RNA sequence: GUCACAGGUGGUGCGGCACACAUGCGGUGUGCAGCAUCGAAUGCGUAAUGUCUAAACACAGACGGUAAUAAG
Numbered sequence: 001g002u003c004a005c006a007g008g009u010g011g012u013g014c015g016g017c018a019c020a021c022a023u024g025c026g027g028u029g030u031g032c033a034g035c036a037u038c039g040a041a042u043g044c045g046u047a048a049u050g051u052c053u054a055a056a057c058a059c060a061g062a063c064g065g066u067a068a069u070a071a072g
Stems, first nucleotide, its partner, number of pairs: 009039006016032005
This 72-nucleotide sequence from Pseudomonas sp. StFLB209 belongs to the Rfam family "sucC RNA".